[Rfam]
RNA sequence: UUCUUAUUGGAUAAUGACUAUCACGUGUCUUGUUCUGAUUGGAUGUCAAUCCCAUGGAAAAUGAAAUGCAUUGUUGUUUUCAUUUACCAAUCAGAACAUAACAUGUGAUAGUCAUCAUCC
Numbered sequence: 001u002u003c004u005u006a007u008u009g010g011a012u013a014a015u016g017a018c019u020a021u022c023a024c025g026u027g028u029c030u031u032g033u034u035c036u037g038a039u040u041g042g043a044u045g046u047c048a049a050u051c052c053c054a055u056g057g058a059a060a061a062u063g064a065a066a067u068g069c070a071u072u073g074u075u076g077u078u079u080u081c082a083u084u085u086a087c088c089a090a091u092c093a094g095a096a097c098a099u100a101a102c103a104u105g106u107g108a109u110a111g112u113c114a115u116c117a118u119c120c
Stems, first nucleotide, its partner, number of pairs: 020109004025104002031098001033096004038091003
RNA: MIR1520 microRNA precursor family